[Rfam]
RNA sequence: UGGCACCAGGCAGUGUAGUUAGCUGAUUGGCUGAAUCGGUGUCCAAUCACUAACCUCACCGCCAGGUGCCC
Numbered sequence: 001u002g003g004c005a006c007c008a009g010g011c012a013g014u015g016u017a018g019u020u021a022g023c024u025g026a027u028u029g030g031c032u033g034a035a036u037c038g039g040u041g042u043c044c045a046a047u048c049a050c051u052a053a054c055c056u057c058a059c060c061g062c063c064a065g066g067u068g069c070c071c
Stems, first nucleotide, its partner, number of pairs: 002070005009063002013059003018054005024049007
mir-34 microRNA precursor family: a 71-nucleotide sequence from Eptatretus burgeri.
Clan: mir-34 clan.
From the family's description: Human mir-34a was discovered computationally and later experimentally verified. The mature sequence is excised from the 5' arm of the hairpin.
A search with the family's covariance model found it, with a score of 57 bits.
Rfam links the family to the GO terms miRNA-mediated post-transcriptional gene silencing and RISC complex.